[Rfam]
RNA sequence: UAAAGCAAGGAAUAACCGUUUCGUAUAAUUCCGGGAAUUGGCCUGGAAGUCUCUACGAGAUCACCGUAAAUGAUCUGGCUACGAACAAGAAAGCACGCUUC
Numbered sequence: 001u002a003a004a005g006c007a008a009g010g011a012a013u014a015a016c017c018g019u020u021u022c023g024u025a026u027a028a029u030u031c032c033g034g035g036a037a038u039u040g041g042c043c044u045g046g047a048a049g050u051c052u053c054u055a056c057g058a059g060a061u062c063a064c065c066g067u068a069a070a071u072g073a074u075c076u077g078g079c080u081a082c083g084a085a086c087a088a089g090a091a092a093g094c095a096c097g098c099u100u101c
Base pairs, nucleotide, nucleotide: 020085021084022083023082024081025080029048030047031046032045033044034043035042058076059075060074061073062072063071
RNA: Purine riboswitch aptamer